[Rfam]
A member of the RNA family "Retrovirus direct repeat 1 (dr1)" from Rhinopomastus cyanomelas, 90 nucleotides long. Lineage of the source: Eukaryota > Teleostomi > Sarcopterygii > Coelurosauria > Rhinopomastus. A search with the family's covariance model found it, with a score of 58 bits.

RNA sequence: UGUAACGGGGCAAGGCUUAACCGAGAGGACAUAGCAUGUAUAGGCGCAAUGCAGGGAUUUCGGGACGUACAUGAUUAGCUUCCUCUCGAG
Number, nucleotide and partner (000 for none) at each position: 001u012002g011003u010004a000005a000006c000007g000008g000009g000010g003011c002012a001013a000014g000015g000016c000017u000018u000019a000020a000021c000022c000023g087024a086025g085026a084027g083028g082029a081030c000031a000032u000033a000034g000035c000036a000037u000038g000039u000040a000041u077042a076043g075044g000045c073046g072047c000048a000049a000050u000051g068052c067053a000054g000055g000056g000057a000058u000059u000060u000061c000062g000063g000064g000065a000066c000067g052068u051069a000070c000071a000072u046073g045074a000075u043076u042077a041078g000079c000080u000081u029082c028083c027084u026085c025086u024087c023088g000089a000090g000